[Rfam]
The record is a 303-nucleotide RNA from Rhinopomastus cyanomelas, which matches "Metazoan signal recognition particle RNA" in Rfam. Taxonomically the source falls in Rhinopomastus (Eukaryota, Teleostomi, Archosauria, Aves). A reference for the family is Wild et al. (2002), "Towards the structure of the mammalian signal recognition particle", Curr Opin Struct Biol. Rfam classes the family as a non-coding RNA gene.
RNA sequence: ACCAGGCACGGUGGCGCAUGCCUGUAGUCCCAGCUACUGCAGGAGGCUGAGCCUGCCGGAUCGCUUGAGCCCAGGAGUUUCUGGGCUGCAAUGCACUGUGUUGAGCAGGCAUCCACACUAAGGCUGGCAUCAAUAUGGUGAGCCCCAGGGAGCCAUCGGGCCCACAACGUUGACUAAGGAGGGGUGGACCUGCCCAGGUUGGAGACAGAGCAGAUCAAAGCUCCCAUGCCAGUCAAUAGUGGGAUCGCGCCUGUGAAUAGGCACUGUAGAGUAAACCUCUGCUGGUUUAAUUUCCAGGCACUA
Numbered sequence: 001a002c003c004a005g006g007c008a009c010g011g012u013g014g015c016g017c018a019u020g021c022c023u024g025u026a027g028u029c030c031c032a033g034c035u036a037c038u039g040c041a042g043g044a045g046g047c048u049g050a051g052c053c054u055g056c057c058g059g060a061u062c063g064c065u066u067g068a069g070c071c072c073a074g075g076a077g078u079u080u081c082u083g084g085g086c087u088g089c090a091a092u093g094c095a096c097u098g099u100g101u102u103g104a105g106c107a108g109g110c111a112u113c114c115a116c117a118c119u120a121a122g123g124c125u126g127g128c129a130u131c132a133a134u135a136u137g138g139u140g141a142g143c144c145c146c147a148g149g150g151a152g153c154c155a156u157c158g159g160g161c162c163c164a165c166a167a168c169g170u171u172g173a174c175u176a177a178g179g180a181g182g183g184g185u186g187g188a189c190c191u192g193c194c195c196a197g198g199u200u201g202g203a204g205a206c207a208g209a210g211c212a213g214a215u216c217a218a219a220g221c222u223c224c225c226a227u228g229c230c231a232g233u234c235a236a237u238a239g240u241g242g243g244a245u246c247g248c249g250c251c252u253g254u255g256a257a258u259a260g261g262c263a264c265u266g267u268a269g270a271g272u273a274a275a276c277c278u279c280u281g282c283u284g285g286u287u288u289a290a291u292u293u294c295c296a297g298g299c300a301c302u303a
Stems, first nucleotide, its partner, number of pairs: 002046002004023005010017001028044003049301001051299005058292001060291002063288001066285001068283003073278003080275001082273002086269002089266002092263002096260004101255001105254006112247001113243002116241005122234009131172004136167001138165003142161004147156001148153001174178001181224005192215001194213001199208003